[Rfam]
RNA sequence: AAAGCAGGUCUGCAAAUGCAGCACUCAUCAUCAGUAGAGUGCUGUCAUUAACCCUGCUGAGAGCAUCUUCCUCCUGUUGCGCUCUUCUUCCUCACUGCUCUGGUGAUGAGGAAACUGCAGCUGCAGGACAAAUAAUU
Numbered sequence: 001a002a003a004g005c006a007g008g009u010c011u012g013c014a015a016a017u018g019c020a021g022c023a024c025u026c027a028u029c030a031u032c033a034g035u036a037g038a039g040u041g042c043u044g045u046c047a048u049u050a051a052c053c054c055u056g057c058u059g060a061g062a063g064c065a066u067c068u069u070c071c072u073c074c075u076g077u078u079g080c081g082c083u084c085u086u087c088u089u090c091c092u093c094a095c096u097g098c099u100c101u102g103g104u105g106a107u108g109a110g111g112a113a114a115c116u117g118c119a120g121c122u123g124c125a126g127g128a129c130a131a132a133u134a135a136u137u
Stems, first nucleotide, its partner, number of pairs: 003058006019044008069131001072128006079121002088113007096105003

Record summary
Small nucleolar RNA SNORA69: a 137-nucleotide RNA sequence from Xiphophorus maculatus. Taxonomically the source falls in Xiphophorus (Eukaryota, Opisthokonta, Gnathostomata, Percomorphaceae). Gene Ontology terms of the family: nucleolus and RNA processing. From the family's description: U69 is a member of the H/ACA class of small nucleolar RNAs (snoRNAs) which act as guides in the the modification of uridines to pseudouridines. It is annotated as an H/ACA-box small nucleolar RNA.